RNA sequence: CCCCGUAGCCCUUCCUGGGCGUUUCCUCCCUAGACUUGGGCCAUGCCGGUUACGGCAUGGCCCCUUUUUUGCCCGAA
Numbered sequence: 001c002c003c004c005g006u007a008g009c010c011c012u013u014c015c016u017g018g019g020c021g022u023u024u025c026c027u028c029c030c031u032a033g034a035c036u037u038g039g040g041c042c043a044u045g046c047c048g049g050u051u052a053c054g055g056c057a058u059g060g061c062c063c064c065u066u067u068u069u070u071g072c073c074c075g076a077a
Stems, first nucleotide, its partner, number of pairs: 008020004039062009

The record is a 77-nucleotide sequence from Tepidicaulis marinus, which matches "Makes More Granules Regulator RNA (mmgR)" in Rfam. NCBI's taxonomy places the organism under Bacteria, Pseudomonadota, Alphaproteobacteria, Hyphomicrobiales, Tepidicaulis.